[Rfam]
RNA: ALIL pseudoknot
Organism: Kordiimonas lacus
RNA sequence: CGCAUAUUUUGCCCAGGCGGAGCUCGACCGCCCACUGAGACGCUGAUCAGCUUUAUUGAUGAGCAUCGGGAGGCCUAUGGGGUCGAGCCGAUCUGCCGUUUGCUGCAGAUCGCCCCA
Numbered sequence: 001c002g003c004a005u006a007u008u009u010u011g012c013c014c015a016g017g018c019g020g021a022g023c024u025c026g027a028c029c030g031c032c033c034a035c036u037g038a039g040a041c042g043c044u045g046a047u048c049a050g051c052u053u054u055a056u057u058g059a060u061g062a063g064c065a066u067c068g069g070g071a072g073g074c075c076u077a078u079g080g081g082g083u084c085g086a087g088c089c090g091a092u093c094u095g096c097c098g099u100u101u102g103c104u105g106c107a108g109a110u111c112g113c114c115c116c117a
Stems, first nucleotide, its partner, number of pairs: 016032005078117005089112002092109005098103001